Annotation: This 147-nucleotide RNA sequence from Phyllobacterium sp. YR531 belongs to the Rfam family "Alphaproteobacterial sRNA ar9". Rfam classes the family as a small RNA. NCBI's taxonomy places the organism under Bacteria, Pseudomonadati, Alphaproteobacteria, Phyllobacteriaceae, Phyllobacterium. A search with the family's covariance model found it, with a score of 109 bits.
RNA sequence: AUAAGGAGAAAGUAAGAAUAUUUCUGCUUUCCUACGCGGUCAAAGUCUUGGGAGGAUGUGACCCAGGCGCGGUUUCCGCAGCCGCCACGCAAGUGGAUUGGGUCAGACGCGAUCUUUAAAUGCAAGGCGAAAGCCUUGCAUUUUUUU
Numbered sequence: 001a002u003a004a005g006g007a008g009a010a011a012g013u014a015a016g017a018a019u020a021u022u023u024c025u026g027c028u029u030u031c032c033u034a035c036g037c038g039g040u041c042a043a044a045g046u047c048u049u050g051g052g053a054g055g056a057u058g059u060g061a062c063c064c065a066g067g068c069g070c071g072g073u074u075u076c077c078g079c080a081g082c083c084g085c086c087a088c089g090c091a092a093g094u095g096g097a098u099u100g101g102g103u104c105a106g107a108c109g110c111g112a113u114c115u116u117u118a119a120a121u122g123c124a125a126g127g128c129g130a131a132a133g134c135c136u137u138g139c140a141u142u143u144u145u146u147u
Stems, first nucleotide, its partner, number of pairs: 001144001006024004011019001035111004045057004060104005066083003069079003085096003121140008